Rfam assigns this 128-nucleotide RNA from Vanilla planifolia to the family "U11 spliceosomal RNA". By type it is a spliceosomal small nuclear RNA. A search with the family's covariance model found it, with a score of 74 bits. Its Rfam clan is "U1 clan".

RNA sequence: UAAAAGGGUCGGUUGGCUAUCUGUGCCACGCUCACCCUUGGAUUGGUGAGUGCUGUAUGGCUAUCAAGACAUAUGGCCGACAUAAUUUGUGGGAACCCGUAGGGUUGGCUUGCUCGGCCGAUCCUCUA
Dot-bracket structure: .......(((((.((((.......))))((((((((........))))))))(((((((..........)))))))))))).................(..(.(((((((.....))))))))..)..
Numbered sequence: 001u002a003a004a005a006g007g008g009u010c011g012g013u014u015g016g017c018u019a020u021c022u023g024u025g026c027c028a029c030g031c032u033c034a035c036c037c038u039u040g041g042a043u044u045g046g047u048g049a050g051u052g053c054u055g056u057a058u059g060g061c062u063a064u065c066a067a068g069a070c071a072u073a074u075g076g077c078c079g080a081c082a083u084a085a086u087u088u089g090u091g092g093g094a095a096c097c098c099g100u101a102g103g104g105u106u107g108g109c110u111u112g113c114u115c116g117g118c119c120g121a122u123c124c125u126c127u128a
Stems, first nucleotide, its partner, number of pairs: 008081005014028004029052008053076007099126001102123001104122007